[Rfam]
RNA sequence: AACCACACUAUCGAUAAAUGGAUUCACUUGUGAUAUGACGACGUGGUUGUUUCAUCUAGUAUGAGGACGUGGCAUCAUAUUAAUUCCAUGCGAUGGCUGGUAAUAGGAUGCCAUGUCCUCGUCCUAGGUGAAACAACCAUAUCAUCUCGUGGGUGAAUCUAUACAUCGAUAGUAUAGUU
Numbered sequence: 001a002a003c004c005a006c007a008c009u010a011u012c013g014a015u016a017a018a019u020g021g022a023u024u025c026a027c028u029u030g031u032g033a034u035a036u037g038a039c040g041a042c043g044u045g046g047u048u049g050u051u052u053c054a055u056c057u058a059g060u061a062u063g064a065g066g067a068c069g070u071g072g073c074a075u076c077a078u079a080u081u082a083a084u085u086c087c088a089u090g091c092g093a094u095g096g097c098u099g100g101u102a103a104u105a106g107g108a109u110g111c112c113a114u115g116u117c118c119u120c121g122u123c124c125u126a127g128g129u130g131a132a133a134c135a136a137c138c139a140u141a142u143c144a145u146c147u148c149g150u151g152g153g154u155g156a157a158u159c160u161a162u163a164c165a166u167c168g169a170u171a172g173u174a175u176a177g178u179u
Stems, first nucleotide, its partner, number of pairs: 001179003005175001007173001009171007018162002021159008030150004035145004044139008054129002057126002061122001066117003072111005078105005089100001
Overview
The record is a 179-nucleotide RNA sequence from Oryza meridionalis, which matches "MIR807 microRNA precursor family" in Rfam. A search with the family's covariance model found it, with a score of 139 bits. The literature on the family includes a 2006 paper in FEBS Lett by Luo et al., "Rice embryogenic calli express a unique set of microRNAs, suggesting regulatory roles of microRNAs in plant post-embryogenic development". NCBI's taxonomy places the organism under Eukaryota, Mesangiospermae, commelinids, Oryzeae, Oryza.